The family of this 96-nucleotide RNA sequence from Haloplasma contractile is "Bacterial small signal recognition particle RNA".
The family's RNA type in Rfam is non-coding RNA gene.
From the family's description: The signal recognition particle (SRP) is a universally conserved ribonucleoprotein involved in the co-translational targeting of proteins to membranes.
RNA sequence: UAAGAACCUUCAUCCAAUGGAUGGACGUGAACCAGGUCAGGUCCGGAAGGAAGCAGCCUUAAGCGUUUCUGUUCAUGUGGGUGAGGGGUCUUAAGG
Numbered sequence: 001u002a003a004g005a006a007c008c009u010u011c012a013u014c015c016a017a018u019g020g021a022u023g024g025a026c027g028u029g030a031a032c033c034a035g036g037u038c039a040g041g042u043c044c045g046g047a048a049g050g051a052a053g054c055a056g057c058c059u060u061a062a063g064c065g066u067u068u069c070u071g072u073u074c075a076u077g078u079g080g081g082u083g084a085g086g087g088g089u090c091u092u093a094a095g096g
Base pairs, nucleotide, nucleotide: 004090005089007087008086009085010084011083012082013081014080015077017076018075019074020073021072022071023068024067025066026065027064028063034059035058036057037056042051043050044049